[Rfam]
Nucleotides: 080
Base pairs, nucleotide, nucleotide: 016048018047019046020045021044024080025079026078027077028076029075030074031043032042052069053068054067055066056065058063
Number, partner (000 for none) and nucleotide at each position: 001000a002000g003000g004000g005000g006000u007000c008000a009000c010000a011000a012000a013000g014000u015000u016048g017000a018047g019046g020045c021044c022000a023000u024080a025079g026078c027077a028076g029075a030074a031043g032042c033000a034000c035000u036000c037000a038000c039000g040000g041000c042032g043031u044021g045020g046019c047018c048016c049000u050000g051000u052069c053068a054067g055066g056065u057000c058063c059000c060000g061000a062000u063058g064000a065056a066055u067054c068053u069052g070000c071000a072000a073000a074030u075029u076028c077027u078026g079025c080024u